[Rfam]
Shown here is a 169-nucleotide RNA sequence from Patulibacter medicamentivorans, a member of the family "c-di-AMP riboswitch aptamer (ydaO/yuaA leader)". The organism belongs to Patulibacter, within Bacteria. Rfam's curators write: This family represents a conserved RNA structure found upstream of the ydaO and yuaA genes in Bacillus subtilis and related genes in other bacteria. It scores 72 bits against the family's covariance model.

RNA sequence: UAAUCCCCGCCGCCGAGCUUCUGACGACCGGUUCGUCAGAAGGCGGGGGAACCACUGCGACCGAUCCGAGAGGGUCGGCCGCUGGGGCGAAUCGGAUCGACUUCGAUCCGUAGCGCACUCGUUCAGCGCGAGCCCGACAGCUCACCCCGUAGGCGCAGAACGAGACCAA
Numbered sequence: 001u002a003a004u005c006c007c008c009g010c011c012g013c014c015g016a017g018c019u020u021c022u023g024a025c026g027a028c029c030g031g032u033u034c035g036u037c038a039g040a041a042g043g044c045g046g047g048g049g050a051a052c053c054a055c056u057g058c059g060a061c062c063g064a065u066c067c068g069a070g071a072g073g074g075u076c077g078g079c080c081g082c083u084g085g086g087g088c089g090a091a092u093c094g095g096a097u098c099g100a101c102u103u104c105g106a107u108c109c110g111u112a113g114c115g116c117a118c119u120c121g122u123u124c125a126g127c128g129c130g131a132g133c134c135c136g137a138c139a140g141c142u143c144a145c146c147c148c149g150u151a152g153g154c155g156c157a158g159a160a161c162g163a164g165a166c167c168a169a
Stems, first nucleotide, its partner, number of pairs: 011155004018042010043150006053084002085135003093110004113129004
Its family is annotated with regulation of gene expression and cyclic-di-AMP binding in the Gene Ontology.